[Rfam]
RNA sequence: AUGAAUGCGAUGAAGAGAAGAGUAGUCAACGCUUUUUCAGAGAGAAAACAGUCGGUGAAAGUUUUCAUAGUUGAUGAAGGUAGCUUGGAGCUUUAAAGUGUGAACUAAUAGUAGUACUUUACGCAGAAGAUACUGUGUUAACAACAUGGAGAGAUACUCGGAUUUGUGUCUAAAAUUAGGUGGUACCACGUUAUUUAAACGUCCUUUGU
Numbered sequence: 001a002u003g004a005a006u007g008c009g010a011u012g013a014a015g016a017g018a019a020g021a022g023u024a025g026u027c028a029a030c031g032c033u034u035u036u037u038c039a040g041a042g043a044g045a046a047a048a049c050a051g052u053c054g055g056u057g058a059a060a061g062u063u064u065u066c067a068u069a070g071u072u073g074a075u076g077a078a079g080g081u082a083g084c085u086u087g088g089a090g091c092u093u094u095a096a097a098g099u100g101u102g103a104a105c106u107a108a109u110a111g112u113a114g115u116a117c118u119u120u121a122c123g124c125a126g127a128a129g130a131u132a133c134u135g136u137g138u139u140a141a142c143a144a145c146a147u148g149g150a151g152a153g154a155u156a157c158u159c160g161g162a163u164u165u166g167u168g169u170c171u172a173a174a175a176u177u178a179g180g181u182g183g184u185a186c187c188a189c190g191u192u193a194u195u196u197a198a199a200c201g202u203c204c205u206u207u208g209u
Base pairs, nucleotide, nucleotide: 007091008090015086016085017084025075026074027073028072029071030070033069035067044066045065046064047063048062049061095120096119097118098117099116100115101114122137123136124135125134126133152171153170154169155168156167157166178205179204180203188202189201190200191199192198
The record is a 209-nucleotide sequence from Globicatella sp. HMSC072A10, which matches "T-box leader" in Rfam. The match comes from Rfam's covariance-model search (114 bits). By type it is a cis-regulatory leader. Rfam 15.1 lists 19,395 matches to the family in 1,923 species.